Shown here is a 164-nucleotide RNA sequence from Furfurilactobacillus rossiae, a member of the family "Listeria sRNA rli38". The source organism's lineage runs through Bacteria, Bacillota, Lactobacillales, Furfurilactobacillus and Furfurilactobacillus rossiae. A reference for the family is Toledo-Arana et al. (2009), "The Listeria transcriptional landscape from saprophytism to virulence", Nature.
RNA sequence: AUCGAGUGGGAAUAAAAGGUACAUGUAAAUUGAACCCGGAAUGUUGAUUUAACGGCAUUUUCGGAAGAUACAAAGGAUACGAUUGGCGGGAAAAUUGUUACGUUCCCCGCCAGAAUCCCCGCCAAGUUUGGGCCGAAUGAGGGCAGACUGGCGGGGAUUUUUGU
Numbered sequence: 001a002u003c004g005a006g007u008g009g010g011a012a013u014a015a016a017a018g019g020u021a022c023a024u025g026u027a028a029a030u031u032g033a034a035c036c037c038g039g040a041a042u043g044u045u046g047a048u049u050u051a052a053c054g055g056c057a058u059u060u061u062c063g064g065a066a067g068a069u070a071c072a073a074a075g076g077a078u079a080c081g082a083u084u085g086g087c088g089g090g091a092a093a094a095u096u097g098u099u100a101c102g103u104u105c106c107c108c109g110c111c112a113g114a115a116u117c118c119c120c121g122c123c124a125a126g127u128u129u130g131g132g133c134c135g136a137a138u139g140a141g142g143g144c145a146g147a148c149u150g151g152c153g154g155g156g157a158u159u160u161u162u163g164u
Base pairs, nucleotide, nucleotide: 008107009106010105011104012103049085051083053081054080057078058077060075061074064071086098087097088096089095114160115159117156118155119154120153121152122151123150124149